[Rfam]
RNA sequence: UGUCAGGUUGGUACAAAAGUAAUUGCGGACUUUGACCUUGAAGUCAAUGUCAAAGCCUGCAAUUACUUUUGUACCAACCUGACA
Numbered sequence: 001u002g003u004c005a006g007g008u009u010g011g012u013a014c015a016a017a018a019g020u021a022a023u024u025g026c027g028g029a030c031u032u033u034g035a036c037c038u039u040g041a042a043g044u045c046a047a048u049g050u051c052a053a054a055g056c057c058u059g060c061a062a063u064u065a066c067u068u069u070u071g072u073a074c075c076a077a078c079c080u081g082a083c084a
Stems, first nucleotide, its partner, number of pairs: 001084028030055007038047003
Rfam assigns this 84-nucleotide RNA sequence from Cercocebus atys to the family "mir-548 microRNA precursor family".
It scores 91 bits against the family's covariance model.
A reference for the family is Witten et al. (2010), "Ultra-high throughput sequencing-based small RNA discovery and discrete statistical biomarker analysis in a collection of cervical tumours and matched controls", BMC Biol.
NCBI's taxonomy places the organism under Eukaryota, Metazoa, Gnathostomata, Cercopithecidae, Cercocebus.
Gene Ontology terms of the family: miRNA-mediated post-transcriptional gene silencing and RISC complex.